[Rfam]
RNA: SAM riboswitch aptamer (S box leader)
RNA sequence: UAUUCAUCAUGAGUAGUGGAGGGAACGGGCCCUGUGAAGCUACAGCAACCUUCUUGUACGGAAAAGGUGCUAAAUCCCUCAGUCACUUGACUGGAAGAUGAGCU
Number, nucleotide and partner (000 for none) at each position: 001u000002a000003u102004u101005c100006a099007u098008c097009a000010u000011g000012a000013g043014u042015a041016g040017u039018g000019g000020a000021g032022g031023g030024a000025a000026c000027g078028g077029g076030c023031c022032c021033u000034g000035u000036g000037a000038a000039g017040c016041u015042a014043c013044a071045g070046c069047a068048a000049c067050c066051u063052u062053c061054u060055u000056g000057u000058a000059c000060g054061g053062a052063a051064a000065a000066g050067g049068u047069g046070c045071u044072a000073a000074a000075u096076c029077c028078c027079u000080c093081a092082g091083u090084c089085a000086c000087u000088u000089g084090a083091c082092u081093g080094g000095a000096a075097g008098a007099u006100g005101a004102g003103c000104u000